[Rfam]
RNA sequence: UGAGCACUUUAACAGGUCCUGGUCUCUGUGUGGUAGACCAUGAUUUGGUAGCUGGUGCUGAAAUUAAAUCUGUCUCUCAUGAAAAACCCCAGAUUUUCGCUCUGUCUGCUGGGUGCAUUUGAGAGAGAGGACACUU
Numbered sequence: 001u002g003a004g005c006a007c008u009u010u011a012a013c014a015g016g017u018c019c020u021g022g023u024c025u026c027u028g029u030g031u032g033g034u035a036g037a038c039c040a041u042g043a044u045u046u047g048g049u050a051g052c053u054g055g056u057g058c059u060g061a062a063a064u065u066a067a068a069u070c071u072g073u074c075u076c077u078c079a080u081g082a083a084a085a086a087c088c089c090c091a092g093a094u095u096u097u098c099g100c101u102c103u104g105u106c107u108g109c110u111g112g113g114u115g116c117a118u119u120u121g122a123g124a125g126a127g128a129g130g131a132c133a134c135u136u
Stems, first nucleotide, its partner, number of pairs: 003059006013047003017043002020040001023037003069130003073126004078121002081119002086114004090108004
Background:
Rfam assigns this 136-nucleotide sequence to the family "Small nucleolar RNA SNORA30/SNORA37 family". The family's consensus secondary structure was predicted with RNAfold. The members of this family belong to the H/ACA class of snoRNAs that guide the sites of modification of uridines to pseudouridines. This family includes human ACA30 (SNORA30), ACA37 (SNORA37) and the mouse homolog MBI-26. Both ACA37 and ACA30 are predicted to guide the pseudouridylation of residue U4643 of 28S rRNA. The sequence is in the family's curated seed alignment.